[Rfam]
Shown here is a 76-nucleotide sequence from Parnassius apollo, a member of the family "Mammalian CPEB3 ribozyme". Rfam describes the family as follows. The mammalian CPEB3 ribozyme is a self cleaving RNA located in the second intron of the CPEB3 gene which belongs to a family of genes regulating messenger RNA polyadenylation. The organism belongs to Parnassius, within Eukaryota.

RNA sequence: UCAGGAGGAUGGGGGUCAUUGUAGAAGCGUGCUCGUCGCGACCCCUGCCAGCCCUUUUCAGUGCUGCAAUUCUACA
Dot-bracket structure: ...........[[[[[[..((((((((((.......)))]]]]]]...((((.((....)).))))...)))))))
Numbered sequence: 001u002c003a004g005g006a007g008g009a010u011g012g013g014g015g016u017c018a019u020u021g022u023a024g025a026a027g028c029g030u031g032c033u034c035g036u037c038g039c040g041a042c043c044c045c046u047g048c049c050a051g052c053c054c055u056u057u058u059c060a061g062u063g064c065u066g067c068a069a070u071u072c073u074a075c076a
Stems, first nucleotide, its partner, number of pairs: 012045006020076007027039003049066004054061002